DUF805b RNA: a 35-nucleotide sequence.
RNA sequence: AAUGAGGUAGCCGAAAAGCAUAUAUAGAGUAGGCA
Dot-bracket structure: .(((.....[[[......)))..........]]].
The family's RNA type in Rfam is cis-regulatory element.
Pairs were carried over by alignment from the consensus structure, which is taken from published work.
The sequence is in the family's curated seed alignment.